Shown here is a 72-nucleotide RNA sequence from secondary endosymbiont of Trabutina mannipara, a member of the family "tpke11". Rfam classes the family as a small RNA. It scores 57 bits against the family's covariance model. In Yersinia located in ICR upstream dnaJ (chaperone)gene. Has temperature responsive RNA structure. Its family is annotated with response to temperature stimulus in the Gene Ontology. The literature on the family includes a 2001 paper in Curr Biol by Rivas et al., "Computational identification of noncoding RNAs in E. coli by comparative genomics". Taxonomically the source falls in mealybug secondary endosymbionts (Bacteria, Pseudomonadati, Pseudomonadota, ant, tsetse, mealybug, aphid, etc. endosymbionts).
RNA sequence: UAUAGAUAAACAGGCACGGGCGUUGAGGUAACUCUGCGCCCGUGUAAUUAUUUUGAUGGCAGGAAGAUACGA
Numbered sequence: 001u002a003u004a005g006a007u008a009a010a011c012a013g014g015c016a017c018g019g020g021c022g023u024u025g026a027g028g029u030a031a032c033u034c035u036g037c038g039c040c041c042g043u044g045u046a047a048u049u050a051u052u053u054u055g056a057u058g059g060c061a062g063g064a065a066g067a068u069a070c071g072a
Stems, first nucleotide, its partner, number of pairs: 014045009025034003